[Rfam]
RNA sequence: GAGUUAAUGUCAUAAGCGAGGUUAAGUAUUAGAGGUAUGUAGCCGUAGCGAAAGCGAGUCCGAAGAGGGCGUAUAAGUUUAUGGUAUUAGACCCGAAACCAGGUGAUCUACCUAUGGUCAGGUUGAAAGUUGGGUAAAACCAACUGGAGGACCGCACCAACCGUCGUUGAAAAGGCGGUGGAGGAACUGUGGGUAGGGGUGAAAGGCCAAACAAACCUGGAGAUAGCUGGUU
Numbered sequence: 001g002a003g004u005u006a007a008u009g010u011c012a013u014a015a016g017c018g019a020g021g022u023u024a025a026g027u028a029u030u031a032g033a034g035g036u037a038u039g040u041a042g043c044c045g046u047a048g049c050g051a052a053a054g055c056g057a058g059u060c061c062g063a064a065g066a067g068g069g070c071g072u073a074u075a076a077g078u079u080u081a082u083g084g085u086a087u088u089a090g091a092c093c094c095g096a097a098a099c100c101a102g103g104u105g106a107u108c109u110a111c112c113u114a115u116g117g118u119c120a121g122g123u124u125g126a127a128a129g130u131u132g133g134g135u136a137a138a139a140c141c142a143a144c145u146g147g148a149g150g151a152c153c154g155c156a157c158c159a160a161c162c163g164u165c166g167u168u169g170a171a172a173a174g175g176c177g178g179u180g181g182a183g184g185a186a187c188u189g190u191g192g193g194u195a196g197g198g199g200u201g202a203a204a205g206g207c208c209a210a211a212c213a214a215a216c217c218u219g220g221a222g223a224u225a226g227c228u229g230g231u232u
Stems, first nucleotide, its partner, number of pairs: 005089013020044004026038003048055002058070004092230002095227001099220006108196011119184001121153004128145006157181003161178005198208003
Bacterial large subunit ribosomal RNA: a 232-nucleotide part of an RNA from Cloacimonas acidaminivorans. Gene Ontology terms of the family: ribosome and structural constituent of ribosome.